[Rfam]
RNA sequence: GCCAAAUGAUGUCAAGUGCAUGGCAUUAGCACUCUGUGCAAAGAUGACCUGCUUCUAUCACCCUAUUACUGAUGGCU
Numbered sequence: 001g002c003c004a005a006a007u008g009a010u011g012u013c014a015a016g017u018g019c020a021u022g023g024c025a026u027u028a029g030c031a032c033u034c035u036g037u038g039c040a041a042a043g044a045u046g047a048c049c050u051g052c053u054u055c056u057a058u059c060a061c062c063c064u065a066u067u068a069c070u071g072a073u074g075g076c077u
Stems, first nucleotide, its partner, number of pairs: 001076004029039004

This 77-nucleotide sequence from Merops nubicus belongs to the Rfam family "Small nucleolar RNA SNORD83". Gene Ontology terms of the family: RNA processing and nucleolus. NCBI's taxonomy places the organism under Eukaryota, Bilateria, Saurischia, Theropoda, Merops. It scores 54 bits against the family's covariance model. It is annotated as a C/D-box small nucleolar RNA.